[Rfam]
RNA: mir-9186 microRNA precursor family
Organism: Myotis lucifugus
RNA sequence: UAGGAGGAGGUUUGCGGUAUGUGUGGUACUGAGGUAAUGGCUGCGCACAGUACCACCCAUGCCGCCCUCCUCCCCCUACA
Numbered sequence: 001u002a003g004g005a006g007g008a009g010g011u012u013u014g015c016g017g018u019a020u021g022u023g024u025g026g027u028a029c030u031g032a033g034g035u036a037a038u039g040g041c042u043g044c045g046c047a048c049a050g051u052a053c054c055a056c057c058c059a060u061g062c063c064g065c066c067c068u069c070c071u072c073c074c075c076c077u078a079c080a
Base pairs, nucleotide, nucleotide: 001078002077003076004075007072008071009070010069014065015064016063017062018061019060020059023056024055025054026053027052028051029050030049031048